Rfam assigns this 76-nucleotide sequence from Sedimentibacter saalensis to the family "c-di-GMP-I-GGC riboswitch aptamer".
Lineage of the source: Bacteria > Bacillati > Bacillota > Tissierellia > Sedimentibacter.
The family is grouped with related families in Rfam's "c-di-GMP_I riboswitch clan".
Pairs were carried over by alignment from the consensus structure, which is taken from published work.
Its family is annotated with cyclic-di-GMP binding in the Gene Ontology.

RNA sequence: ACCGAUAAUGGCAAAGCUGACGAAAGUUAGCGACGCAAAGCUACAGGGCCUUUAAAAUGGCAGCCAGCUACCGAAA
Numbered sequence: 001a002c003c004g005a006u007a008a009u010g011g012c013a014a015a016g017c018u019g020a021c022g023a024a025a026g027u028u029a030g031c032g033a034c035g036c037a038a039a040g041c042u043a044c045a046g047g048g049c050c051u052u053u054a055a056a057a058u059g060g061c062a063g064c065c066a067g068c069u070a071c072c073g074a075a076a
Stems, first nucleotide, its partner, number of pairs: 003073002011036002016031006034063001039069004046065002048061003